A member of the RNA family "mir-145 microRNA precursor family" from Microcaecilia unicolor, 86 nucleotides long. Rfam 15.1 lists 645 matches to the family in 626 species. The match comes from Rfam's covariance-model search (98 bits). For this family Rfam cites "The developmental miRNA profiles of zebrafish as determined by small RNA cloning" (Chen et al., Genes Dev, 2005).
RNA sequence: ACCUUGGCCUCAGGGUCCAGUUUUCCCAGGAAUCCCUUGGGCACAGUGAUGGGGAUUCCUGGAAAUACUGUUCUUGGGGUCAAGGC
Number, nucleotide and partner (000 for none) at each position: 001a000002c000003c000004u000005u000006g000007g000008c000009c000010u000011c000012a000013g000014g000015g000016u000017c000018c070019a069020g068021u067022u000023u065024u064025c000026c062027c061028a060029g059030g058031a057032a056033u055034c054035c053036c052037u051038u000039g000040g000041g000042c000043a000044c000045a000046g000047u000048g000049a000050u000051g037052g036053g035054g034055a033056u032057u031058c030059c029060u028061g027062g026063a000064a024065a023066u000067a021068c020069u019070g018071u000072u000073c000074u000075u000076g000077g000078g000079g000080u000081c000082a000083a000084g000085g000086c000